Small nucleolar RNA snoR27: a 95-nucleotide sequence from Salvia splendens. It is annotated as a C/D-box small nucleolar RNA. The family is grouped with related families in Rfam's "snR68 clan". NCBI's taxonomy places the organism under Eukaryota, Spermatophyta, lamiids, Mentheae, core Calosphace. Rfam 15.1 lists 649 matches to the family in 212 species.
RNA sequence: AAAGGAUCGGUAAUGCAUUAGUUUAAAACUACGUUAUCUAUCUGAUAUUCCCAAUUCGAAAUUGAAGAUACUUUUUCUAGCUCUUGAGAACCUCU
Numbered sequence: 001a002a003a004g005g006a007u008c009g010g011u012a013a014u015g016c017a018u019u020a021g022u023u024u025a026a027a028a029c030u031a032c033g034u035u036a037u038c039u040a041u042c043u044g045a046u047a048u049u050c051c052c053a054a055u056u057c058g059a060a061a062u063u064g065a066a067g068a069u070a071c072u073u074u075u076u077c078u079a080g081c082u083c084u085u086g087a088g089a090a091c092c093u094c095u
Stems, first nucleotide, its partner, number of pairs: 001095001003093003007089001